[Rfam]
Small nucleolar RNA SNORD74: an 83-nucleotide RNA sequence from Dicentrarchus labrax. Rfam classes the family as a C/D-box small nucleolar RNA. Gene Ontology terms of the family: RNA processing and nucleolus. Clan: SNORD74 clan. A search with the family's covariance model found it, with a score of 62 bits. For this family Rfam cites "Classification of gas5 as a multi-small-nucleolar-RNA (snoRNA) host gene and a member of the 5'-terminal oligopyrimidine gene family reveals common features of snoRNA host genes" (Smith and Steitz, Mol Cell Biol, 1998). The family has 22 seed sequences and 929 matches in Rfam 15.1.
RNA sequence: UCCCCAUGACUGUGAUGAAGUAAAUGUUGGUAGGGACAUCUGAAUACUGUGAAGAAACGCCAACUCCUCUGAUUUCAUGGGGA
Numbered sequence: 001u002c003c004c005c006a007u008g009a010c011u012g013u014g015a016u017g018a019a020g021u022a023a024a025u026g027u028u029g030g031u032a033g034g035g036a037c038a039u040c041u042g043a044a045u046a047c048u049g050u051g052a053a054g055a056a057a058c059g060c061c062a063a064c065u066c067c068u069c070u071g072a073u074u075u076c077a078u079g080g081g082g083a
Base pairs, nucleotide, nucleotide: 001083002082003081004080005079006078007077